[Rfam]
RNA sequence: GAAAUUCUUCGGGGCAGGGUGAUGCAUAGAGCAAAUUCCCGACCGACGGUGAUACACAUAUGUGGCAAGUCCGUGAGCUGCUUUGGCAGUUGAGUAAGGUGAGAAUCCUACACCGACAGUAUAGUCUGGAUGAGAGAAGAUAGCU
Numbered sequence: 001g002a003a004a005u006u007c008u009u010c011g012g013g014g015c016a017g018g019g020u021g022a023u024g025c026a027u028a029g030a031g032c033a034a035a036u037u038c039c040c041g042a043c044c045g046a047c048g049g050u051g052a053u054a055c056a057c058a059u060a061u062g063u064g065g066c067a068a069g070u071c072c073g074u075g076a077g078c079u080g081c082u083u084u085g086g087c088a089g090u091u092g093a094g095u096a097a098g099g100u101g102a103g104a105a106u107c108c109u110a111c112a113c114c115g116a117c118a119g120u121a122u123a124g125u126c127u128g129g130a131u132g133a134g135a136g137a138a139g140a141u142a143g144c145u
Stems, first nucleotide, its partner, number of pairs: 006140005017040003042125002044115002046074004069113002077090003094111003098108002117128003
RNA: FMN riboswitch aptamer (RFN element)